[Rfam]
RNA: Bacterial RNase P class A
RNA sequence: GAAGUCAGCCAGACCGCCGCUGGUGCAAGGCCCGAAAGGGCGCACUGGAGGAAGGUCCGGACUGCACAGGGCAGCGUAGGAGGUAACACCUCUCCACCGCAAGGUGAGGAUCAGAGCAACAGAGACGAGUCCGGACGGGUUCCGCUACGGGUGGUCUGUGAGGCGUCGGCGUCAGCCGACGGCCCUUGCGAAGGCAAGGGCUCGUGUGAAAGCACGAACCGAGCAGCACCCCAGGCGGGCAAAGCCCGCCUGGGGUGAAACGGGCAAUCUCUACGCGCAGCAACACCAAAUAGGCACACAUUGACCUGGCCCGGGGAGUGUGCGGGUAGGUGGCAUCGAGCCGUUCUGGUGACAGGCGGCCCAGAGGAAUGGCGGUCACGGCCCAGCGUCGCGAGACACGGGGCUGCACAGAAUCCGGCCUAUCGGCUGACUUCACAC
Number, nucleotide and partner (000 for none) at each position: 001g434002a433003a432004g431005u430006c429007a428008g427009c426010c425011a423012g377013a376014c375015c374016g373017c372018c371019g000020c048021u047022g046023g045024u044025g043026c042027a000028a000029g000030g000031c000032c000033c000034g000035a000036a000037a000038g000039g000040g000041c000042g026043c025044a024045c023046u022047g021048g020049a000050g000051g000052a000053a421054g420055g419056u000057c418058c417059g416060g415061a414062c280063u279064g278065c277066a000067c000068a000069g312070g311071g310072c309073a000074g276075c275076g274077u273078a272079g093080g092081a091082g090083g089084u000085a000086a000087c000088a000089c083090c082091u081092c080093u079094c108095c106096a105097c104098c103099g000100c000101a000102a000103g098104g097105u096106g095107a000108g094109g271110a270111u000112c000113a000114g269115a268116g265117c264118a000119a000120c000121a000122g000123a000124g000125a000126c000127g000128a000129g000130u000131c254132c253133g250134g249135a000136c248137g247138g246139g245140u244141u243142c000143c000144g000145c000146u000147a000148c000149g000150g000151g000152u000153g000154g000155u000156c000157u000158g000159u000160g000161a000162g000163g000164c000165g000166u000167c000168g000169g000170c000171g000172u000173c000174a000175g000176c000177c000178g000179a000180c000181g000182g000183c000184c000185c000186u000187u000188g000189c000190g000191a000192a000193g000194g000195c000196a000197a000198g000199g000200g000201c000202u000203c000204g000205u000206g000207u000208g000209a000210a000211a000212g000213c000214a000215c000216g000217a000218a000219c000220c000221g000222a000223g000224c000225a000226g000227c000228a000229c000230c000231c000232c000233a000234g000235g000236c000237g000238g000239g000240c000241a000242a000243a141244g140245c139246c138247c137248g136249c134250c133251u000252g000253g132254g131255g000256u000257g000258a000259a000260a000261c000262g000263g000264g117265c116266a000267a000268u115269c114270u110271c109272u078273a077274c076275g075276c074277g065278c064279a063280g062281c000282a000283a000284c332285a331286c330287c329288a000289a000290a000291u000292a000293g000294g323295c322296a321297c320298a319299c318300a000301u000302u000303g000304a000305c315306c314307u313308g000309g072310c071311c070312c069313g307314g306315g305316g000317a000318g299319u298320g297321u296322g295323c294324g000325g000326g000327u000328a000329g287330g286331u285332g284333g000334c000335a000336u000337c000338g000339a000340g360341c359342c358343g357344u000345u356346c355347u354348g353349g000350u000351g000352a000353c348354a347355g346356g345357c343358g342359g341360c340361c000362c000363a000364g000365a000366g000367g000368a000369a000370u000371g018372g017373c016374g015375g014376u013377c012378a000379c000380g000381g000382c000383c000384c000385a000386g000387c000388g000389u000390c000391g000392c000393g000394a000395g000396a000397c000398a000399c000400g000401g000402g000403g000404c000405u000406g000407c000408a000409c000410a000411g000412a000413a000414u061415c060416c059417g058418g057419c055420c054421u053422a000423u011424c000425g010426g009427c008428u007429g006430a005431c004432u003433u002434c001435a000436c000437a000438c000